TPP riboswitch aptamer (THI element): a 110-nucleotide RNA from Sphingomonas taxi. The match comes from Rfam's covariance-model search (67 bits). Lineage of the source: Bacteria > Pseudomonadati > Pseudomonadota > Sphingomonadaceae > Sphingomonas.
RNA sequence: GGGCCAUCCCCGGGGGGCCGCUGACGCGCGGCUGAGAAAUGGGCAGCAGCCCAUGACCCGCUGAACCUGAUCCGGGUGAUACCGGCGUAGGGAGGGUCUGCGGUGCGCCG
Numbered sequence: 001g002g003g004c005c006a007u008c009c010c011c012g013g014g015g016g017g018c019c020g021c022u023g024a025c026g027c028g029c030g031g032c033u034g035a036g037a038a039a040u041g042g043g044c045a046g047c048a049g050c051c052c053a054u055g056a057c058c059c060g061c062u063g064a065a066c067c068u069g070a071u072c073c074g075g076g077u078g079a080u081a082c083c084g085g086c087g088u089a090g091g092g093a094g095g096g097u098c099u100g101c102g103g104u105g106c107g108c109c110g
Stems, first nucleotide, its partner, number of pairs: 008096003011060004016054001017032005040053005066091004072085004